The family of this 150-nucleotide RNA sequence from Falsochrobactrum ovis is "speF leader". It is annotated as a cis-regulatory leader. For this family Rfam cites "Evidence for a second class of S-adenosylmethionine riboswitches and other regulatory RNA motifs in alpha-proteobacteria" (Corbino et al., Genome Biol, 2005).
RNA sequence: UUCCGGCUGUCCAAAAGCCGGGAUUACUGAAGAGGCACACCUUCAUUGCCGGCAGUGCGGAUGCGGUUCUCCCAAUUCCAAGCCAAGGCAGACAAAGCGGAAUGACGCGGUGAUCGCGUUGUUUCACCACCGCAUGAGCUUUCGUGUGAA
Numbered sequence: 001u002u003c004c005g006g007c008u009g010u011c012c013a014a015a016a017g018c019c020g021g022g023a024u025u026a027c028u029g030a031a032g033a034g035g036c037a038c039a040c041c042u043u044c045a046u047u048g049c050c051g052g053c054a055g056u057g058c059g060g061a062u063g064c065g066g067u068u069c070u071c072c073c074a075a076u077u078c079c080a081a082g083c084c085a086a087g088g089c090a091g092a093c094a095a096a097g098c099g100g101a102a103u104g105a106c107g108c109g110g111u112g113a114u115c116g117c118g119u120u121g122u123u124u125c126a127c128c129a130c131c132g133c134a135u136g137a138g139c140u141u142u143c144g145u146g147u148g149a150a
Base pairs, nucleotide, nucleotide: 001023002022003021004020005019006018007017008016034050035049036048037047057130059128083091102111103110